Shown here is a 90-nucleotide RNA sequence from a Syntrophomonadaceae bacterium, a member of the family "c-di-GMP-I riboswitch aptamer". The match comes from Rfam's covariance-model search (76 bits).
Nucleotides: 090
Stems, first nucleotide, its partner, number of pairs: 012037002017032006040084004047079002049075003056069004
Number, partner (000 for none) and nucleotide at each position: 001000a002000g003000g004000c005000g006000u007000c008000a009000a010000g011000g012037g013036c014000a015000a016000a017032c018031c019030c020029a021028u022027u023000g024000a025000a026000a027022g028021g029020u030019g031018g032017g033000g034000a035000c036013g037012c038000a039000a040084a041083g042082c043081c044000a045000c046000a047079g048078g049075g050074u051073c052000u053000a054000a055000g056069g057068u058067g059066c060000u061000u062000a063000u064000c065000g066059g067058c068057a069056c070000u071000a072000c073051g074050a075049u076000a077000g078048c079047c080000a081043g082042g083041c084040u085000g086000c087000c088000g089000c090000u